Notes:
Shown here is a 225-nucleotide RNA from Ceratopteris richardii, a member of the family "Listeria sRNA rliA". The base pairs follow the family's consensus structure, which was predicted with RNAalifold. Rfam 15.1 lists 15 matches to the family in 7 species.
RNA sequence: AUGCAUAUGCAUACAUGCAUGCAUAUGCAUUCAUGUGUGUAUGCACAUGCAUGCAUGUAUGCAUAUGCAUGUAUGUAUGCAUGUAUAUAUGCAUGUAUACAAGCAUGCAUAUGUAUACAUGCAUACAUACAUGCAUAUGCAUACAUGCAUGCAUGUGCAUACACACAUGAAUGCAUAUGCAUACAUACAUGAAUGCAUAUGCAUACAUGCAUGCAUAUGCAUACA
Numbered sequence: 001a002u003g004c005a006u007a008u009g010c011a012u013a014c015a016u017g018c019a020u021g022c023a024u025a026u027g028c029a030u031u032c033a034u035g036u037g038u039g040u041a042u043g044c045a046c047a048u049g050c051a052u053g054c055a056u057g058u059a060u061g062c063a064u065a066u067g068c069a070u071g072u073a074u075g076u077a078u079g080c081a082u083g084u085a086u087a088u089a090u091g092c093a094u095g096u097a098u099a100c101a102a103g104c105a106u107g108c109a110u111a112u113g114u115a116u117a118c119a120u121g122c123a124u125a126c127a128u129a130c131a132u133g134c135a136u137a138u139g140c141a142u143a144c145a146u147g148c149a150u151g152c153a154u155g156u157g158c159a160u161a162c163a164c165a166c167a168u169g170a171a172u173g174c175a176u177a178u179g180c181a182u183a184c185a186u187a188c189a190u191g192a193a194u195g196c197a198u199a200u201g202c203a204u205a206c207a208u209g210c211a212u213g214c215a216u217a218u219g220c221a222u223a224c225a
Stems, first nucleotide, its partner, number of pairs: 001030011038225007046151001048149004053080009103144001105142004110137002113132002116129002153178008162169001